[Rfam]
RNA sequence: CCCACACCCAUGUAUGUAGGAUCCCAAAAGAUCACUAUUAAAUUUGGCACAGAUCUCUAUAAAAGUUGUCAGAUGGGUGUGGGAUUUGACUUUUCUAGAGAUUUGUGCCAAAUUUAAUGGUAAUCAUUCGAGGUCCUGCAUACAUGGGUGUAGG
Numbered sequence: 001c002c003c004a005c006a007c008c009c010a011u012g013u014a015u016g017u018a019g020g021a022u023c024c025c026a027a028a029a030g031a032u033c034a035c036u037a038u039u040a041a042a043u044u045u046g047g048c049a050c051a052g053a054u055c056u057c058u059a060u061a062a063a064a065g066u067u068g069u070c071a072g073a074u075g076g077g078u079g080u081g082g083g084a085u086u087u088g089a090c091u092u093u094u095c096u097a098g099a100g101a102u103u104u105g106u107g108c109c110a111a112a113u114u115u116a117a118u119g120g121u122a123a124u125c126a127u128u129c130g131a132g133g134u135c136c137u138g139c140a141u142a143c144a145u146g147g148g149u150g151u152a153g154g
Base pairs, nucleotide, nucleotide: 002153004151005150006149007148008147009146010145011144012143013142015140016139017138018137019136020135021134022133023132025130027128028127030125031124032123034121035120036119037118038117039116040115041114042113043112044111045110046109047108048107049106050105051104052103053102054101055100056099057098058097059096061094062093063092064091065090066089067088068087069082070081071080073078
MIR8565 microRNA precursor family: a 154-nucleotide RNA from Amborella trichopoda.